[Rfam]
RNA sequence: GAUAGUAGCAAAUACACAAGUGAGAAUCUUGUGGACCGAAGUGGAAAAGGGUUUCACGUCAACAUCAUUUGACUGUGAGUUAGUCGGUCCUAAGCUAAAAUUGAAAAAUUUUUAUUCAUAUAUAGCGAAAGGGAAAUAGAUUAAUAUUUCUAUACUAUCUAUGGAGAUAAUAUAGGAUAAUAACUAUAUUAUGCAUGGUAACAUAAAUGAAAUUAACUACAAUAUAACAAGUUUUGGGUAGAGAUAUCUUCUCUAUUUAAGUUAUUAAAUCUAUGGAAAUUGCUCAGCAAGAGAUAUAGAUGAAAUUUUAACGUAGAGUACUAACAUUUUGUUGGUAUCCAAAGUGCUUGUUAUAUUACUUAAAAAGUUAAUGGAAGCAUAAUAAAUUUCAUAGAAUAACCGUACCCAUAUCCGCAACAGGUUUCCAAGAUGUUUAGUCUCUGGUCGA
Numbered sequence: 001g002a003u004a005g006u007a008g009c010a011a012a013u014a015c016a017c018a019a020g021u022g023a024g025a026a027u028c029u030u031g032u033g034g035a036c037c038g039a040a041g042u043g044g045a046a047a048a049g050g051g052u053u054u055c056a057c058g059u060c061a062a063c064a065u066c067a068u069u070u071g072a073c074u075g076u077g078a079g080u081u082a083g084u085c086g087g088u089c090c091u092a093a094g095c096u097a098a099a100a101u102u103g104a105a106a107a108a109u110u111u112u113u114a115u116u117c118a119u120a121u122a123u124a125g126c127g128a129a130a131g132g133g134a135a136a137u138a139g140a141u142u143a144a145u146a147u148u149u150c151u152a153u154a155c156u157a158u159c160u161a162u163g164g165a166g167a168u169a170a171u172a173u174a175g176g177a178u179a180a181u182a183a184c185u186a187u188a189u190u191a192u193g194c195a196u197g198g199u200a201a202c203a204u205a206a207a208u209g210a211a212a213u214u215a216a217c218u219a220c221a222a223u224a225u226a227a228c229a230a231g232u233u234u235u236g237g238g239u240a241g242a243g244a245u246a247u248c249u250u251c252u253c254u255a256u257u258u259a260a261g262u263u264a265u266u267a268a269a270u271c272u273a274u275g276g277a278a279a280u281u282g283c284u285c286a287g288c289a290a291g292a293g294a295u296a297u298a299g300a301u302g303a304a305a306u307u308u309u310a311a312c313g314u315a316g317a318g319u320a321c322u323a324a325c326a327u328u329u330u331g332u333u334g335g336u337a338u339c340c341a342a343a344g345u346g347c348u349u350g351u352u353a354u355a356u357u358a359c360u361u362a363a364a365a366a367g368u369u370a371a372u373g374g375a376a377g378c379a380u381a382a383u384a385a386a387u388u389u390c391a392u393a394g395a396a397u398a399a400c401c402g403u404a405c406c407c408a409u410a411u412c413c414g415c416a417a418c419a420g421g422u423u424u425c426c427a428a429g430a431u432g433u434u435u436a437g438u439c440u441c442u443g444g445u446c447g448a
Stems, first nucleotide, its partner, number of pairs: 015033006034446004043426004049406002054078005063071002085402003089132002094126002097111002100109003136153005156398003162391005168384001173205002176202001212372006221357004226352007234342003237257006261312004270300006280290003319337007412421002428440004

The record is a 448-nucleotide part of an RNA from Strongyloides ratti, which matches "Eukaryotic large subunit ribosomal RNA" in Rfam. The base pairs follow the family's consensus structure, which is taken from published work. Taxonomically the source falls in Strongyloides (Eukaryota, Opisthokonta, Panagrolaimomorpha, Strongyloidoidea).